[Rfam]
serC leader: a 53-nucleotide RNA sequence from Novosphingopyxis sp. YJ-S2-01. For this family Rfam cites "Evidence for a second class of S-adenosylmethionine riboswitches and other regulatory RNA motifs in alpha-proteobacteria" (Corbino et al., Genome Biol, 2005). Rfam's curators write: This family is a putative regulatory RNA structure that is found upstream of the serC-serA operon in some alpha-proteobacteria. The final stem of the structure overlaps the ribosome binding site of the serC reading frame. It scores 39 bits against the family's covariance model. Rfam classes the family as a cis-regulatory leader. The organism belongs to Novosphingopyxis, within Bacteria.

RNA sequence: CCACGGGCCACGCCGUCCCAACGCGGCGCGCGCUCUCUGUAAGGAGAAGCAUA
Number, nucleotide and partner (000 for none) at each position: 001c000002c000003a000004c000005g000006g000007g000008c000009c000010a000011c028012g027013c026014c025015g024016u023017c000018c000019c000020a000021a000022c000023g016024c015025g014026g013027c012028g011029c000030g000031c000032g000033c000034u047035c046036u045037c044038u043039g000040u000041a000042a000043g038044g037045a036046g035047a034048a000049g000050c000051a000052u000053a000